The record is a 61-nucleotide RNA from Papaver nudicaule, which matches "Plastid-psbN 5UTR RNA" in Rfam. From the family's description: Plastid psbN is a non-coding RNA (ncRNA) recognised in plastids. It was reported as a conserved 11 stem-loop in the prime untranslated region (5UTR) of psbN genes. It has been reported that the motif is retained in a subset of mature transcripts in barley, which can suggests a possible role in transcript alternative 5 prime processing. A reference for the family is Zhelyazkova et al. (2012), "The primary transcriptome of barley chloroplasts: numerous noncoding RNAs and the dominating role of the plastid-encoded RNA polymerase", Plant Cell. Lineage of the source: Eukaryota > Streptophytina > Tracheophyta > Ranunculales > Papaver. The family's consensus secondary structure was predicted with LocARNA.

RNA sequence: UAUGCCUUCGAUUCACGGGGUAGUUCCCCAUUCAGGAACUACUUUACCAUAUUCCCAAUUC
Numbered sequence: 001u002a003u004g005c006c007u008u009c010g011a012u013u014c015a016c017g018g019g020g021u022a023g024u025u026c027c028c029c030a031u032u033c034a035g036g037a038a039c040u041a042c043u044u045u046a047c048c049a050u051a052u053u054c055c056c057a058a059u060u061c
Stems, first nucleotide, its partner, number of pairs: 017045011